This 248-nucleotide RNA from Baryphthengus martii belongs to the Rfam family "Small nucleolar RNA SNORD17". Rfam's curators write: The snoRNA HBI-43 belongs to the C/D family of snoRNAs, guiding 2'O-ribose methylation at position U3797 of the 28S rRNA. Pseudouridylation in position U3797 is predicted to be guided by the H/ACA snoRNA ACA48. It scores 119 bits against the family's covariance model. The organism belongs to Baryphthengus, within Eukaryota. On this family, see Huttenhofer et al., EMBO J 2001: "RNomics: an experimental approach that identifies 201 candidates for novel, small, non-messenger RNAs in mouse".

RNA sequence: GUGAGGUGAUGACGAAGUUUAUCCAUUCUCUGAGUGCCGUGGUGCUGCCCUCCUGCAACACCCCGAUUCCUGUUCUAGGGUCUGGGUGCUGGGCGGCCUUCGCACGUGCUCCAGUCUCCCAGUGUCCUACUGGGGGCUGCUGGGGCACGUGGCUGGCUGCCUGCAGGAGUGAAGUGGCACCAGCAGGGUUGGAGCCCCUCUUUGGGGGGCUCUGGUCCUCACUGAGAUGAGGGAUGAUGUCUGAUCAC
Numbered sequence: 001g002u003g004a005g006g007u008g009a010u011g012a013c014g015a016a017g018u019u020u021a022u023c024c025a026u027u028c029u030c031u032g033a034g035u036g037c038c039g040u041g042g043u044g045c046u047g048c049c050c051u052c053c054u055g056c057a058a059c060a061c062c063c064c065g066a067u068u069c070c071u072g073u074u075c076u077a078g079g080g081u082c083u084g085g086g087u088g089c090u091g092g093g094c095g096g097c098c099u100u101c102g103c104a105c106g107u108g109c110u111c112c113a114g115u116c117u118c119c120c121a122g123u124g125u126c127c128u129a130c131u132g133g134g135g136g137c138u139g140c141u142g143g144g145g146c147a148c149g150u151g152g153c154u155g156g157c158u159g160c161c162u163g164c165a166g167g168a169g170u171g172a173a174g175u176g177g178c179a180c181c182a183g184c185a186g187g188g189u190u191g192g193a194g195c196c197c198c199u200c201u202u203u204g205g206g207g208g209g210c211u212c213u214g215g216u217c218c219u220c221a222c223u224g225a226g227a228u229g230a231g232g233g234a235u236g237a238u239g240u241c242u243g244a245u246c247a248c
Stems, first nucleotide, its partner, number of pairs: 010247003017240002020237001023233002026231003030226002034222002039184002042181001043179006050171001051168007059088005065082001068080004093160006106146002112139005118134007186218008195209004